[Rfam]
RNA sequence: AGAGGCCCUCUGUGGCCUGGGUGGAACACUUGCCUCAUCACCGUGGUGACAAAGCAAACAUUCUGCCAGGCCACUCACACUGCCUGC
Number, nucleotide and partner (000 for none) at each position: 001a000002g000003a000004g084005g083006c082007c000008c000009u000010c000011u000012g074013u073014g072015g071016c070017c069018u000019g000020g067021g066022u065023g064024g063025a062026a061027c000028a000029c000030u057031u056032g055033c054034c000035u000036c000037a000038u049039c048040a047041c046042c000043g000044u000045g000046g041047u040048g039049a038050c000051a000052a000053a000054g033055c032056a031057a030058a000059c000060a000061u026062u025063c024064u023065g022066c021067c020068a000069g017070g016071c015072c014073a013074c012075u000076c000077a000078c000079a000080c000081u000082g006083c005084c004085u000086g000087c000

Notes
The family of this 87-nucleotide RNA sequence from Pipistrellus kuhlii is "mir-9195 microRNA precursor family". Gene Ontology terms of the family: miRNA-mediated post-transcriptional gene silencing and RISC complex. Taxonomically the source falls in Pipistrellus (Eukaryota, Vertebrata, Chiroptera, Vespertilionidae).